[Rfam]
RNA sequence: GGUCCAAAAGAUCGCCGUUCGUCAACGAGGCUUCGUACACGAACGCGAUACUU
Dot-bracket structure: ...............(((((((..((((....))))..)))))))........
RNA: ffh sRNA